[Rfam]
About this RNA:
A member of the RNA family "t44 RNA" from Vibrio agarilyticus, 101 nucleotides long. Rfam's curators write: This family consists of a number of bacterial RNA genes of between 135 and 170 bases in length. A reference for the family is Tjaden et al. (2002), "Transcriptome analysis of Escherichia coli using high-density oligonucleotide probe arrays", Nucleic Acids Res. A search with the family's covariance model found it, with a score of 78 bits.

RNA sequence: UCACACUUUAAUUUAAAUCACACACAUUCCGACACAUGUUCCGGGGUGCUCGUUUGUUAAGUCAGACAGAGUCGGAUUCAUGGGGGAUGUGGAGGCCUAAC
Number, nucleotide and partner (000 for none) at each position: 001u000002c000003a000004c000005a000006c000007u000008u000009u000010a000011a000012u000013u000014u000015a000016a000017a000018u000019c000020a000021c000022a000023c091024a090025c089026a088027u087028u086029c085030c084031g000032a000033c000034a000035c082036a081037u080038g079039u000040u076041c075042c074043g073044g000045g000046g000047u000048g072049c071050u070051c069052g000053u000054u000055u000056g000057u000058u000059a000060a000061g000062u000063c000064a000065g000066a000067c000068a000069g051070a050071g049072u048073c043074g042075g041076a040077u000078u000079c038080a037081u036082g035083g000084g030085g029086g028087a027088u026089g025090u024091g023092g000093a000094g000095g000096c000097c000098u000099a000100a000101c000